This 170-nucleotide sequence from Glycomyces buryatensis belongs to the Rfam family "c-di-AMP riboswitch aptamer (ydaO/yuaA leader)". About the family: This family represents a conserved RNA structure found upstream of the ydaO and yuaA genes in Bacillus subtilis and related genes in other bacteria. A search with the family's covariance model found it, with a score of 78 bits.
RNA sequence: CGCGUGACACCGCCGAGUCGACUGCGCCCCAAGCAAUGUCGAACCGGGGAACCAGGGUUGAGGCGCGAGCGCCUCCAACUGGGGUGAAUCGCGCCUUCGGGCGAGUAGGGCGAUCCUUCUUCCCGCCCGAACCCGACAGCUAACCCGGUAGGCGGCACGAGGAAGGAGCG
Numbered sequence: 001c002g003c004g005u006g007a008c009a010c011c012g013c014c015g016a017g018u019c020g021a022c023u024g025c026g027c028c029c030c031a032a033g034c035a036a037u038g039u040c041g042a043a044c045c046g047g048g049g050a051a052c053c054a055g056g057g058u059u060g061a062g063g064c065g066c067g068a069g070c071g072c073c074u075c076c077a078a079c080u081g082g083g084g085u086g087a088a089u090c091g092c093g094c095c096u097u098c099g100g101g102c103g104a105g106u107a108g109g110g111c112g113a114u115c116c117u118u119c120u121u122c123c124c125g126c127c128c129g130a131a132c133c134c135g136a137c138a139g140c141u142a143a144c145c146c147g148g149u150a151g152g153c154g155g156c157a158c159g160a161g162g163a164a165g166g167a168g169c170g
Base pairs, nucleotide, nucleotide: 011154012153013152014151018042019041020040021039022038043149044148045147046146047145048144053081054080082134083133084132090105092103093102108128109127110126111125